[Rfam]
RNA sequence: GAGUAAGAGGUUCGUAACCAUCCCUCUAUAAAAAACUAAGGAGAU
Numbered sequence: 001g002a003g004u005a006a007g008a009g010g011u012u013c014g015u016a017a018c019c020a021u022c023c024c025u026c027u028a029u030a031a032a033a034a035a036c037u038a039a040g041g042a043g044a045u
Stems, first nucleotide, its partner, number of pairs: 006027005015038002